[Rfam]
Shown here is a 97-nucleotide RNA sequence from Parablautia intestinalis, a member of the family "ZMP/ZTP riboswitch aptamer (pfl RNA motif)". NCBI's taxonomy places the organism under Bacteria, Bacillati, Clostridia, Lachnospirales, Parablautia. A search with the family's covariance model found it, with a score of 47 bits. The base pairs follow the family's consensus structure, which is taken from published work.

RNA sequence: GAUUAGAUACACAACUGACGGAAACAGGAAAUGCCUGGGUAGAAUAAACUACAGGGAGUGUAUUGUGAGCAAUGAGCCGACCGUCUGGGUAGCCCUG
Number, nucleotide and partner (000 for none) at each position: 001g000002a000003u067004u000005a000006g064007a063008u062009a061010c060011a059012c058013a000014a000015c055016u054017g085018a084019c083020g082021g081022a000023a000024a000025c000026a000027g000028g000029a000030a000031a000032u000033g000034c000035c000036u000037g000038g000039g052040u051041a050042g049043a000044a000045u000046a000047a000048a000049c042050u041051a040052c039053a000054g016055g015056g000057a000058g012059u011060g010061u009062a008063u007064u006065g000066u000067g003068a000069g000070c000071a000072a000073u000074g000075a000076g090077c089078c088079g000080a000081c021082c020083g019084u018085c017086u000087g000088g078089g077090u076091a000092g000093c000094c000095c000096u000097g000